[Rfam]
RNA: Small nucleolar RNA SNORA31
RNA sequence: CGGCAUCCACUGAUAGACCUAAAGCAGGACCACCUUGGCUUUUGGGUUUGCACUCGGAUGCAACAUCCAAUUUCCUUGCGCUUUCUGACUGUCAAGUGGCAGAUUGGAUUGAAUUAAGGAAAACAUGC
Numbered sequence: 001c002g003g004c005a006u007c008c009a010c011u012g013a014u015a016g017a018c019c020u021a022a023a024g025c026a027g028g029a030c031c032a033c034c035u036u037g038g039c040u041u042u043u044g045g046g047u048u049u050g051c052a053c054u055c056g057g058a059u060g061c062a063a064c065a066u067c068c069a070a071u072u073u074c075c076u077u078g079c080g081c082u083u084u085c086u087g088a089c090u091g092u093c094a095a096g097u098g099g100c101a102g103a104u105u106g107g108a109u110u111g112a113a114u115u116a117a118g119g120a121a122a123a124c125a126u127g128c
Stems, first nucleotide, its partner, number of pairs: 003061006011052002014050006022040001025037004073120006081111001084108004089102005